[Rfam]
RNA: Bacterial large subunit ribosomal RNA, nucleotides 1358 to 1759
RNA sequence: GAUAAACCGAGCGAGAAACUCGGUCGCCGUAAGCCCAAGGUUUCCUGGGGAAGGAUAAUCCUCCCAUGGGUUAGUCGGAACCUAAGCCGAGGCCGAGAGGCGUAGGUGAUGGAAAGCAGGUUAAUAUUCCUGCACCACCAAGGGUAGCGUUGAAGUAAGCGGGGACGGAGUAGGGUAGGCCGAGCACAGUGGUUGGUUAUCUGUGUUCAAGCCAGUAGGGUGAGCUUCCAGGACCCGAUAGGGACAAACGGGAGCUCGUAAAGCCCGAGAGGUGAUGAGGUUGGAGCUUCGGCUCCGAUAACUCGGUGAUCCCAGGCUUCCAAGAAAAGCCGCGUACAGAGCUUCUUUGGUGUCCGUACCGCAAACCGACUCAGGUGGGCGGGGUGAGUAUCCCAAGGCGCG
Numbered sequence: 001g002a003u004a005a006a007c008c009g010a011g012c013g014a015g016a017a018a019c020u021c022g023g024u025c026g027c028c029g030u031a032a033g034c035c036c037a038a039g040g041u042u043u044c045c046u047g048g049g050g051a052a053g054g055a056u057a058a059u060c061c062u063c064c065c066a067u068g069g070g071u072u073a074g075u076c077g078g079a080a081c082c083u084a085a086g087c088c089g090a091g092g093c094c095g096a097g098a099g100g101c102g103u104a105g106g107u108g109a110u111g112g113a114a115a116g117c118a119g120g121u122u123a124a125u126a127u128u129c130c131u132g133c134a135c136c137a138c139c140a141a142g143g144g145u146a147g148c149g150u151u152g153a154a155g156u157a158a159g160c161g162g163g164g165a166c167g168g169a170g171u172a173g174g175g176u177a178g179g180c181c182g183a184g185c186a187c188a189g190u191g192g193u194u195g196g197u198u199a200u201c202u203g204u205g206u207u208c209a210a211g212c213c214a215g216u217a218g219g220g221u222g223a224g225c226u227u228c229c230a231g232g233a234c235c236c237g238a239u240a241g242g243g244a245c246a247a248a249c250g251g252g253a254g255c256u257c258g259u260a261a262a263g264c265c266c267g268a269g270a271g272g273u274g275a276u277g278a279g280g281u282u283g284g285a286g287c288u289u290c291g292g293c294u295c296c297g298a299u300a301a302c303u304c305g306g307u308g309a310u311c312c313c314a315g316g317c318u319u320c321c322a323a324g325a326a327a328a329g330c331c332g333c334g335u336a337c338a339g340a341g342c343u344u345c346u347u348u349g350g351u352g353u354c355c356g357u358a359c360c361g362c363a364a365a366c367c368g369a370c371u372c373a374g375g376u377g378g379g380c381g382g383g384g385u386g387a388g389u390a391u392c393c394c395a396a397g398g399c400g401c402g
Stems, first nucleotide, its partner, number of pairs: 006024006025400004033380004039360002044069002046066004053061002076356004081112002086107003090103001092101003116133005136352009155337001159333004167320004173313003179307005184206006207278002211273003218266003222257007234242002283296005366375002382394003